[Rfam]
RNA sequence: AAGCUACACUUGCUGAAUCCUGAAUUUUCCAGGUACGGAGGAACCACUAAGGGGUUAAUCCAUAUUGUCUAUGGUAGGGAACCUUCUAUCCCGAACCCGUCAGCUAACUUCGGAAGCAGAACAAGGAAGGAGU
Numbered sequence: 001a002a003g004c005u006a007c008a009c010u011u012g013c014u015g016a017a018u019c020c021u022g023a024a025u026u027u028u029c030c031a032g033g034u035a036c037g038g039a040g041g042a043a044c045c046a047c048u049a050a051g052g053g054g055u056u057a058a059u060c061c062a063u064a065u066u067g068u069c070u071a072u073g074g075u076a077g078g079g080a081a082c083c084u085u086c087u088a089u090c091c092c093g094a095a096c097c098c099g100u101c102a103g104c105u106a107a108c109u110u111c112g113g114a115a116g117c118a119g120a121a122c123a124a125g126g127a128a129g130g131a132g133u
Base pairs, nucleotide, nucleotide: 011118012117013116014115019033020032021031022030036112037111038110039109040108045051052098053097054096060074061073062072063071077092078091079090080089